[Rfam]
RNA sequence: GUGCCAUCCAGAGCGGCCGAGAGACCUGGCUCGUCGACGCCGCAGCAACCACGUCCGGUUGACGGACGGGGUGCUUCCGCCGGGACCGAUGGGAG
Numbered sequence: 001g002u003g004c005c006a007u008c009c010a011g012a013g014c015g016g017c018c019g020a021g022a023g024a025c026c027u028g029g030c031u032c033g034u035c036g037a038c039g040c041c042g043c044a045g046c047a048a049c050c051a052c053g054u055c056c057g058g059u060u061g062a063c064g065g066a067c068g069g070g071g072u073g074c075u076u077c078c079g080c081c082g083g084g085a086c087c088g089a090u091g092g093g094a095g
Stems, first nucleotide, its partner, number of pairs: 002094001004092005013043005021032003026083004044075004049071002053067004079087001